[Rfam]
RNA sequence: UCAGGAUGUCGCGACUGGCGUUGAGGUGGAGGUCCACCGGGGAGCGACGACACCUGUGACAUCGGGACCGUUCGCCUGGGCCCCACGU
Dot-bracket structure: ....(.((((((..(([[[[.....((((....))))..))..)))))).).............((.((...]]]]..)).)).....